[Rfam]
RNA sequence: GCGAUUGGAACGGGAGAACCGGCAAGCUGCCGGUGCCGAAGGAGCAACCGCCCCGGAAACUCUCAGGCGCAAGGACCGCUCCGAUCAU
Numbered sequence: 001g002c003g004a005u006u007g008g009a010a011c012g013g014g015a016g017a018a019c020c021g022g023c024a025a026g027c028u029g030c031c032g033g034u035g036c037c038g039a040a041g042g043a044g045c046a047a048c049c050g051c052c053c054c055g056g057a058a059a060c061u062c063u064c065a066g067g068c069g070c071a072a073g074g075a076c077c078g079c080u081c082c083g084a085u086c087a088u
Base pairs, nucleotide, nucleotide: 006083007082008081009080011078012077013076019033020032021031022030035068036067037066038064039063042062043061044060048056049055
Rfam assigns this 88-nucleotide RNA sequence from Pelagivirga sediminicola to the family "Glycine riboswitch aptamer". Pairs were carried over by alignment from the consensus structure. The source organism's lineage runs through Bacteria, Pseudomonadota, Alphaproteobacteria, Rhodobacterales and Pelagivirga. Rfam's curators write: This family represents the bacterial glycine riboswitch. Glycine riboswitches usually consist of two metabolite-binding aptamers domains with similar structures in tandem. The aptamers cooperatively bind glycine to regulate the expression of downstream genes. In Bacillus subtilis, this riboswitch is found upstream of the gcvT operon which controls glycine degradation. The match comes from Rfam's covariance-model search (60 bits).